The family of this 78-nucleotide RNA from Lactuca sativa is "Small nucleolar RNA SNORD18". Rfam 15.1 lists 2,622 matches to the family in 960 species. A search with the family's covariance model found it, with a score of 44 bits. The organism belongs to Lactuca, within Eukaryota.
RNA sequence: GAGAUAUGAUGAGCAAUUUAUUGGUCCGUGUUUCUGAAUUUUCAGUGAUCGACAAACUAUUAACCAAACUCUGAUCUC
Numbered sequence: 001g002a003g004a005u006a007u008g009a010u011g012a013g014c015a016a017u018u019u020a021u022u023g024g025u026c027c028g029u030g031u032u033u034c035u036g037a038a039u040u041u042u043c044a045g046u047g048a049u050c051g052a053c054a055a056a057c058u059a060u061u062a063a064c065c066a067a068a069c070u071c072u073g074a075u076c077u078c
Stems, first nucleotide, its partner, number of pairs: 001078004